RNA sequence: UGUGGUGCGGUGAUUAUAAAACAUUCCUCGUCCUGAUGGGAGAUCCCCGUGAUCGACUCCUUACACCCAUAGAAUCUGAGCACCA
Number, nucleotide and partner (000 for none) at each position: 001u000002g000003u085004g084005g000006u082007g081008c000009g000010g000011u000012g000013a000014u000015u000016a000017u000018a000019a000020a000021a000022c000023a000024u000025u000026c000027c000028u000029c000030g000031u000032c000033c000034u000035g000036a000037u000038g000039g000040g000041a000042g000043a000044u000045c000046c000047c000048c000049g000050u000051g000052a000053u000054c000055g000056a000057c000058u000059c000060c000061u000062u000063a000064c000065a000066c000067c000068c000069a000070u000071a000072g000073a000074a000075u000076c000077u000078g000079a000080g000081c007082a006083c000084c004085a003
Notes:
Shown here is an 85-nucleotide RNA from Eragrostis curvula, a member of the family "Small nucleolar RNA snoR8a". A reference for the family is Brown et al. (2001), "Multiple snoRNA gene clusters from Arabidopsis", RNA. Lineage of the source: Eukaryota > Euphyllophyta > Magnoliopsida > Eragrostidinae > Eragrostis. A search with the family's covariance model found it, with a score of 63 bits. The base pairs follow the family's consensus structure, which was predicted with WAR.